[Rfam]
RNA sequence: UAAAAGGGUCGGAUGGCUAAAUAUGCCCCGCUUAACCAUAGAUUGGUAAGUGCUGUAUGGCUAUCAAGACAUAUGGCCGACAUAAUUUGUGGAAUCUUAUAUAGGGUUGGCUCGUUUCUGGCCGACCCUCCA
Numbered sequence: 001u002a003a004a005a006g007g008g009u010c011g012g013a014u015g016g017c018u019a020a021a022u023a024u025g026c027c028c029c030g031c032u033u034a035a036c037c038a039u040a041g042a043u044u045g046g047u048a049a050g051u052g053c054u055g056u057a058u059g060g061c062u063a064u065c066a067a068g069a070c071a072u073a074u075g076g077c078c079g080a081c082a083u084a085a086u087u088u089g090u091g092g093a094a095u096c097u098u099a100u101a102u103a104g105g106g107u108u109g110g111c112u113c114g115u116u117u118c119u120g121g122c123c124g125a126c127c128c129u130c131c132a
Base pairs, nucleotide, nucleotide: 008081009080010079011078012077015027016026017025029052030051031050032049033048034047036045038044053076054075055074056073057072058071059070103129104128105127106126107125108124109123110122111121112120114118
This 132-nucleotide RNA sequence from Papaver somniferum belongs to the Rfam family "U11 spliceosomal RNA". Taxonomically the source falls in Papaver (Eukaryota, Embryophyta, Spermatophyta, Mesangiospermae).